Rfam assigns this 91-nucleotide RNA sequence from Aestuariivita boseongensis to the family "L2-Alphaproteobacteria ribosomal protein leader". Lineage of the source: Bacteria > Pseudomonadati > Alphaproteobacteria > Paracoccaceae > Aestuariivita. The family's consensus secondary structure is taken from published work. For this family Rfam cites "Discovery of 20 novel ribosomal leader candidates in bacteria and archaea" (Eckert and Weinberg, BMC Microbiol, 2020). The sequence is in the family's curated seed alignment.
RNA sequence: GGGCACCUAAGGGGGCCUAUACCUUGGGCGGCAUUGCCGUCCUCACAUAUUGGUUGAACUCUGUUCGACCGAGCUAAACGGAAGACAGAAA
Numbered sequence: 001g002g003g004c005a006c007c008u009a010a011g012g013g014g015g016c017c018u019a020u021a022c023c024u025u026g027g028g029c030g031g032c033a034u035u036g037c038c039g040u041c042c043u044c045a046c047a048u049a050u051u052g053g054u055u056g057a058a059c060u061c062u063g064u065u066c067g068a069c070c071g072a073g074c075u076a077a078a079c080g081g082a083a084g085a086c087a088g089a090a091a
Stems, first nucleotide, its partner, number of pairs: 001018004006014003026066006